[Rfam]
RNA sequence: CGUCUCCGCGGCUGCGAUAAGGCACGGUUCAUAUCCCGGCCGCCCGGACCGUGCAUAGCUACUGGCGAGCCCGCCAGCAUCGAGG
Numbered sequence: 001c002g003u004c005u006c007c008g009c010g011g012c013u014g015c016g017a018u019a020a021g022g023c024a025c026g027g028u029u030c031a032u033a034u035c036c037c038g039g040c041c042g043c044c045c046g047g048a049c050c051g052u053g054c055a056u057a058g059c060u061a062c063u064g065g066c067g068a069g070c071c072c073g074c075c076a077g078c079a080u081c082g083a084g085g
Base pairs, nucleotide, nucleotide: 001085003083004082008078009077011075014059015058022054023053024052025051026050027049028048030047038072039071041067042066043065044064
RNA: c-di-GMP-II-GCG riboswitch aptamer